[Rfam]
RNA: Guanidine-II riboswitch aptamer (mini-ykkC)
RNA sequence: GCGUGGGGACGACCCCACGCUUCUUUUUUUGCUCCGGUGGGGACGACCCCG
Numbered sequence: 001g002c003g004u005g006g007g008g009a010c011g012a013c014c015c016c017a018c019g020c021u022u023c024u025u026u027u028u029u030u031g032c033u034c035c036g037g038u039g040g041g042g043a044c045g046a047c048c049c050c051g
Base pairs, nucleotide, nucleotide: 001020002019003018004017005016006015007014008013038051039050040049041048042047